Background: A member of the RNA family "Bacterial large subunit ribosomal RNA" from Azoarcus sp. KH32C, 588 nucleotides of a longer RNA. Pairs were carried over by alignment from the consensus structure, which is taken from published work. The family has 102 seed sequences and 51,934 matches in Rfam 15.1. A search with the family's covariance model found it, with a score of 2826 bits.
RNA sequence: CCCGCGGCUAGACGGAAAGACCCCAUGAACCUUUACUGUAGCUUUGCAUUGGACUUUGACGGGACUUGUGUAGGAUAGGUGGGAGGCUUUGAAGCGGCAACGCCAGUUGUCGUGGAGCCGUCCUUGAAAUACCACCCUGGUGUCGUUGAGGUUCUAACCUGGGCCCGUGAAUCCGGGUCGGGGACCGUGCAUGGCAGGCAGUUUGACUGGGGCGGUCUCCUCCUAAAAGGUAACGGAGGAGUACGAAGGUCGCCUAGGUACGGUCGGACAUCGUACUGAUAGUGCAAUGGCAAAAGGCGGCUUGACUGCGAGACCGACAAGUCGAGCAGGUGCGAAAGCAGGUCAUAGUGAUCCGGUGGUUCUGUAUGGAAGGGCCAUCGCUCAACGGAUAAAAGGUACUCUGGGGAUAACAGGCUGAUUCCGCCCAAGAGUUCACAUCGACGGCGGAGUUUGGCACCUCGAUGUCGGCUCAUCACAUCCUGGGGCUGUAGCCGGUCCCAAGGGUAUGGCUGUUCGCCAUUUAAAGUGGUACGUGAGCUGGGUUUAAAACGUCGUGAGACAGUUUGGUCCCUAUCUGCCGUGGGCGCU
Numbered sequence: 001c002c003c004g005c006g007g008c009u010a011g012a013c014g015g016a017a018a019g020a021c022c023c024c025a026u027g028a029a030c031c032u033u034u035a036c037u038g039u040a041g042c043u044u045u046g047c048a049u050u051g052g053a054c055u056u057u058g059a060c061g062g063g064a065c066u067u068g069u070g071u072a073g074g075a076u077a078g079g080u081g082g083g084a085g086g087c088u089u090u091g092a093a094g095c096g097g098c099a100a101c102g103c104c105a106g107u108u109g110u111c112g113u114g115g116a117g118c119c120g121u122c123c124u125u126g127a128a129a130u131a132c133c134a135c136c137c138u139g140g141u142g143u144c145g146u147u148g149a150g151g152u153u154c155u156a157a158c159c160u161g162g163g164c165c166c167g168u169g170a171a172u173c174c175g176g177g178u179c180g181g182g183g184a185c186c187g188u189g190c191a192u193g194g195c196a197g198g199c200a201g202u203u204u205g206a207c208u209g210g211g212g213c214g215g216u217c218u219c220c221u222c223c224u225a226a227a228a229g230g231u232a233a234c235g236g237a238g239g240a241g242u243a244c245g246a247a248g249g250u251c252g253c254c255u256a257g258g259u260a261c262g263g264u265c266g267g268a269c270a271u272c273g274u275a276c277u278g279a280u281a282g283u284g285c286a287a288u289g290g291c292a293a294a295a296g297g298c299g300g301c302u303u304g305a306c307u308g309c310g311a312g313a314c315c316g317a318c319a320a321g322u323c324g325a326g327c328a329g330g331u332g333c334g335a336a337a338g339c340a341g342g343u344c345a346u347a348g349u350g351a352u353c354c355g356g357u358g359g360u361u362c363u364g365u366a367u368g369g370a371a372g373g374g375c376c377a378u379c380g381c382u383c384a385a386c387g388g389a390u391a392a393a394a395g396g397u398a399c400u401c402u403g404g405g406g407a408u409a410a411c412a413g414g415c416u417g418a419u420u421c422c423g424c425c426c427a428a429g430a431g432u433u434c435a436c437a438u439c440g441a442c443g444g445c446g447g448a449g450u451u452u453g454g455c456a457c458c459u460c461g462a463u464g465u466c467g468g469c470u471c472a473u474c475a476c477a478u479c480c481u482g483g484g485g486c487u488g489u490a491g492c493c494g495g496u497c498c499c500a501a502g503g504g505u506a507u508g509g510c511u512g513u514u515c516g517c518c519a520u521u522u523a524a525a526g527u528g529g530u531a532c533g534u535g536a537g538c539u540g541g542g543u544u545u546a547a548a549a550c551g552u553c554g555u556g557a558g559a560c561a562g563u564u565u566g567g568u569c570c571c572u573a574u575c576u577g578c579c580g581u582g583g584g585c586g587c588u
Base pairs, nucleotide, nucleotide: 001584002583003582004581005580006579007578008577010576011575012574014571015570022405023404024403025402027401028400029397030396031395032394033393035202036201037200038199042194043193045191046190047189048188051154052153053152054151055150056149057148058147059146060145061144062143064141065140066139068137078136079135080134081133082132085119086118087117094113095112096111097110098109099108100107101106158182159181160180162179163178164177165176166175167174205217206216207215208214218240219239220238221237222236223235241386243343244342249301250300251299252298253297254296255281256280258276259275260274261273262272263271282291283290306329307328308327309326312323313322314321331340332339333338354380355379356378357377358376359375360374362373363372414455415454416453418452419449420448421447422446423445424444425443429439430438466541467539468538469537470536471533472530473529474528475527476526479504480503482499483498484497485496486495487494506520507519508518509517510516547565548564549563550562551560552559553558